[Rfam]
RNA sequence: UCUAGAACUCGAGAUAUGGGCUGAAGGGUUGUAGGACAAAUUCUAACUUCUCUUUUGUUGCUACAUUUGGAACUUGAAAACAGCCCUUUUGAAUCUUGGACUCUUCAUGAAAGUUUUAGGCCUAUGUCUUAGCUUUCCAUC
Numbered sequence: 001u002c003u004a005g006a007a008c009u010c011g012a013g014a015u016a017u018g019g020g021c022u023g024a025a026g027g028g029u030u031g032u033a034g035g036a037c038a039a040a041u042u043c044u045a046a047c048u049u050c051u052c053u054u055u056u057g058u059u060g061c062u063a064c065a066u067u068u069g070g071a072a073c074u075u076g077a078a079a080a081c082a083g084c085c086c087u088u089u090u091g092a093a094u095c096u097u098g099g100a101c102u103c104u105u106c107a108u109g110a111a112a113g114u115u116u117u118a119g120g121c122c123u124a125u126g127u128c129u130u131a132g133c134u135u136u137c138c139a140u141c
Base pairs, nucleotide, nucleotide: 003139005137006136007135008132009131011130012129013128014127015126016125017124018123019122020121021119022118023117024116025115026104027103028102030100033097034096035095036094039090040089047083048082053077054076057073058072059071
Dot-bracket structure: ..(.(((((.((((((((((((((((((.(..((((..((......((....((..(((...........)))..))....)).....))...))))..).)))..........))))).))))))))))))..))).)..
Shown here is a 141-nucleotide RNA sequence from Populus deltoides, a member of the family "MIR2912 microRNA precursor family". NCBI's taxonomy places the organism under Eukaryota, Gunneridae, rosids, Saliceae, Populus. Rfam links the family to the GO terms miRNA-mediated post-transcriptional gene silencing and RISC complex. The family has 2 seed sequences and 15,051 matches in Rfam 15.1. The family's consensus secondary structure was predicted with RNAalifold.